[Rfam]
Nucleotides: 140
Base pairs, nucleotide, nucleotide: 002062005059006058007057016055017054018053019048020047021046023044024043025041026040027039028038029037065129066128067127068126069125070124071123072121073120074119081109082108083107084106085105
Number, partner (000 for none) and nucleotide at each position: 001000u002062g003000u004000a005059c006058u007057g008000u009000a010000u011000g012000g013000g014000c015000a016055u017054c018053u019048g020047u021046g022000c023044u024043c025041g026040g027039c028038a029037g030000u031000u032000u033000c034000c035000u036000c037029u038028u039027g040026c041025u042000a043024g044023a045000a046021u047020g048019u049000u050000u051000c052000a053018a054017g055016g056000a057007c058006a059005g060000c061000c062002c063000u064000a065129u066128a067127g068126a069125a070124a071123u072121u073120c074119a075000a076000u077000a078000u079000c080000u081109a082108g083107c084106a085105u086000u087000g088000u089000u090000g091000a092000u093000u094000u095000u096000c097000u098000u099000g100000a101000c102000u103000u104000u105085g106084u107083g108082c109081u110000u111000a112000u113000u114000a115000a116000a117000c118000c119074u120073g121072g122000u123071a124070u125069u126068u127067c128066u129065a130000u131000g132000u133000a134000u135000g136000c137000a138000g139000u140000u
Small nucleolar RNA SNORA8: a 140-nucleotide RNA sequence from Rattus norvegicus. The match comes from Rfam's covariance-model search (107 bits). Its family is annotated with nucleolus and RNA processing in the Gene Ontology. The source organism's lineage runs through Eukaryota, Bilateria, Theria, Muridae and Rattus.